[Rfam]
RNA sequence: CCCAUACUCUUGUGUGUAGGAUCCCAAAAGAUCACCAUUAAAUUUGAUAUAGAUCUCUAAAAAAAUUAUCACAUGGGUGUGGCACUUAACUUUUCUAGAGAUCUAUGUCAAAUUUAAUGGUGAUCAUUUGAAGUCCUACACACAGGGGUGUGGG
Numbered sequence: 001c002c003c004a005u006a007c008u009c010u011u012g013u014g015u016g017u018a019g020g021a022u023c024c025c026a027a028a029a030g031a032u033c034a035c036c037a038u039u040a041a042a043u044u045u046g047a048u049a050u051a052g053a054u055c056u057c058u059a060a061a062a063a064a065a066u067u068a069u070c071a072c073a074u075g076g077g078u079g080u081g082g083c084a085c086u087u088a089a090c091u092u093u094u095c096u097a098g099a100g101a102u103c104u105a106u107g108u109c110a111a112a113u114u115u116a117a118u119g120g121u122g123a124u125c126a127u128u129u130g131a132a133g134u135c136c137u138a139c140a141c142a143c144a145g146g147g148g149u150g151u152g153g154g
Base pairs, nucleotide, nucleotide: 002153003152004151005150006149007148008147009146010145011144012143013142015140016139017138018137019136020135021134022133025130026129027128028127030125031124032123034121035120036119037118038117039116040115041114042113043112044111045110046109047108048107049106050105051104052103053102054101055100056099057098058097059096061094062093063092064091066089067088068087069082070081071080072079073078
A member of the RNA family "MIR8565 microRNA precursor family" from Amborella trichopoda, 154 nucleotides long.
A search with the family's covariance model found it, with a score of 141 bits.
The family's consensus secondary structure was predicted with RNAalifold.
Gene Ontology terms of the family: miRNA-mediated post-transcriptional gene silencing and RISC complex.
The source organism's lineage runs through Eukaryota, Euphyllophyta, Amborellales, Amborellaceae and Amborella.